[Rfam]
RNA: Eukaryotic large subunit ribosomal RNA, nucleotides 2265 to 2864
RNA sequence: UGCCCAGUGCUCUGAAUGUUAAUGUAAGGUAACUUUUUUAAGCGCGGGUAAACGGCGGGAGUAACUAUGACUCUUAACUUUAAGGGAGGCGAGAGUGGUGAGGGGGUCCUCAGGAAACUGAGAAUUCUUUUAUUGCUAUGUCGACUGAUCCCGAAGUUCAUUAUCCCUCGGAGUGGUGCCCGGGGAUGAGACACUUCACCUGGUAUCCGACUUUUGUGGGAACGAGGCAUGUUGCGGGUGAUCAGCGGCGACACGAUCUGGUACGGGGGAGGCCUCGAAGCUUGGGGGGAACGGAGUAGUCUGAGGAUGGAGGGAACAGUCGCGGGGGAGGAGGAAAAGGAUUGUUUCGUUCCGGAGGGCGAAAGGGAUUUCUUAAGUAUGGGGUUAAUCCCGUGGCGAGCCAGGUAUAGGGUAAACUUAUGCCACCGGCCGUUGUAGAGCGCGGAAAGACGUGGGCUUCUCAGGAGGCCUGAGGGAGGGAGGCUAAGGGGGAGGCUUAAGGGACGUGCCAACCGCCACGAUAAUAAAGUGGUCCCCAAGUCAGAGCCCCCGCAGGGUAAAGGCUUGGGGGGGGAGUGUGUUUUCGAACCGCCCUCCGGA
Numbered sequence: 001u002g003c004c005c006a007g008u009g010c011u012c013u014g015a016a017u018g019u020u021a022a023u024g025u026a027a028g029g030u031a032a033c034u035u036u037u038u039u040a041a042g043c044g045c046g047g048g049u050a051a052a053c054g055g056c057g058g059g060a061g062u063a064a065c066u067a068u069g070a071c072u073c074u075u076a077a078c079u080u081u082a083a084g085g086g087a088g089g090c091g092a093g094a095g096u097g098g099u100g101a102g103g104g105g106g107u108c109c110u111c112a113g114g115a116a117a118c119u120g121a122g123a124a125u126u127c128u129u130u131u132a133u134u135g136c137u138a139u140g141u142c143g144a145c146u147g148a149u150c151c152c153g154a155a156g157u158u159c160a161u162u163a164u165c166c167c168u169c170g171g172a173g174u175g176g177u178g179c180c181c182g183g184g185g186a187u188g189a190g191a192c193a194c195u196u197c198a199c200c201u202g203g204u205a206u207c208c209g210a211c212u213u214u215u216g217u218g219g220g221a222a223c224g225a226g227g228c229a230u231g232u233u234g235c236g237g238g239u240g241a242u243c244a245g246c247g248g249c250g251a252c253a254c255g256a257u258c259u260g261g262u263a264c265g266g267g268g269g270a271g272g273c274c275u276c277g278a279a280g281c282u283u284g285g286g287g288g289g290a291a292c293g294g295a296g297u298a299g300u301c302u303g304a305g306g307a308u309g310g311a312g313g314g315a316a317c318a319g320u321c322g323c324g325g326g327g328g329a330g331g332a333g334g335a336a337a338a339g340g341a342u343u344g345u346u347u348c349g350u351u352c353c354g355g356a357g358g359g360c361g362a363a364a365g366g367g368a369u370u371u372c373u374u375a376a377g378u379a380u381g382g383g384g385u386u387a388a389u390c391c392c393g394u395g396g397c398g399a400g401c402c403a404g405g406u407a408u409a410g411g412g413u414a415a416a417c418u419u420a421u422g423c424c425a426c427c428g429g430c431c432g433u434u435g436u437a438g439a440g441c442g443c444g445g446a447a448a449g450a451c452g453u454g455g456g457c458u459u460c461u462c463a464g465g466a467g468g469c470c471u472g473a474g475g476g477a478g479g480g481a482g483g484c485u486a487a488g489g490g491g492g493a494g495g496c497u498u499a500a501g502g503g504a505c506g507u508g509c510c511a512a513c514c515g516c517c518a519c520g521a522u523a524a525u526a527a528a529g530u531g532g533u534c535c536c537c538a539a540g541u542c543a544g545a546g547c548c549c550c551c552g553c554a555g556g557g558u559a560a561a562g563g564c565u566u567g568g569g570g571g572g573g574g575a576g577u578g579u580g581u582u583u584u585c586g587a588a589c590c591g592c593c594c595u596c597c598g599g600a
Stems, first nucleotide, its partner, number of pairs: 002056003007053002009049004014045001017044003024037001026035003057075006